[Rfam]
RNA sequence: UGCCGAACCAAGGGGUGCAAUGUGACAUCACAUUGCUGAGAACAUAACCCUUAUUACCUGAAACGGAUAAUGCCGGCGUAGGGAUGGUUGAAGACACGUUG
Numbered sequence: 001u002g003c004c005g006a007a008c009c010a011a012g013g014g015g016u017g018c019a020a021u022g023u024g025a026c027a028u029c030a031c032a033u034u035g036c037u038g039a040g041a042a043c044a045u046a047a048c049c050c051u052u053a054u055u056a057c058c059u060g061a062a063a064c065g066g067a068u069a070a071u072g073c074c075g076g077c078g079u080a081g082g083g084a085u086g087g088u089u090g091a092a093g094a095c096a097c098g099u100u101g
Base pairs, nucleotide, nucleotide: 006089007088008087009086010085011051012050013049014048017036018035019034020033021032022031023030057082058081059080060079064075065074066073